[Rfam]
RNA sequence: CGAUGGUGGCGAUUUUGGGGACAGAUGCCUGUGUCGCCUUCCCUGGGCCGGCAUCGUGGUCGGUGACUCGACCUCCUGUCCCCUGAGG
Number, nucleotide and partner (000 for none) at each position: 001c000002g000003a000004u085005g000006g083007u000008g082009g081010c000011g080012a079013u000014u000015u000016u000017g000018g077019g076020g075021a074022c000023a000024g000025a000026u000027g067028c000029c065030u063031g000032u000033g060034u059035c058036g057037c056038c000039u000040u000041c000042c000043c000044u000045g000046g000047g000048c000049c000050g000051g000052c000053a000054u000055c000056g037057u036058g035059g034060u033061c000062g000063g030064u000065g029066a000067c027068u000069c000070g000071a000072c000073c000074u021075c020076c019077u018078g000079u012080c011081c009082c008083c006084u000085g004086a000087g000088g000

Shown here is an 88-nucleotide sequence from Theropithecus gelada, a member of the family "NoRC associated RNA, pRNA". Gene Ontology term of the family: chromatin remodeling. On this family, see Mayer et al., EMBO Rep 2008: "The structure of NoRC-associated RNA is crucial for targeting the chromatin remodelling complex NoRC to the nucleolus". The organism belongs to Theropithecus, within Eukaryota. By type it is a non-coding RNA gene.